[Rfam]
Nucleotides: 044
Stems, first nucleotide, its partner, number of pairs: 001044009011034007
Number, partner (000 for none) and nucleotide at each position: 001044g002043a003042g004041a005040a006039c007038c008037a009036u010000u011034u012033g013032a014031a015030u016029c017028a018000a019000g020000u021000a022000g023000u024000g025000u026000a027000g028017u029016g030015a031014u032013u033012c034011a035000c036009a037008u038007g039006g040005u041004u042003c043002u044001u